[Rfam]
RNA sequence: GUCCUGCCACAACGGCUUCCUGACGUGGCAGGCAAACUUUAUCGGAGCA
Numbered sequence: 001g002u003c004c005u006g007c008c009a010c011a012a013c014g015g016c017u018u019c020c021u022g023a024c025g026u027g028g029c030a031g032g033c034a035a036a037c038u039u040u041a042u043c044g045g046a047g048c049a
Stems, first nucleotide, its partner, number of pairs: 004031007013022002015048003019045002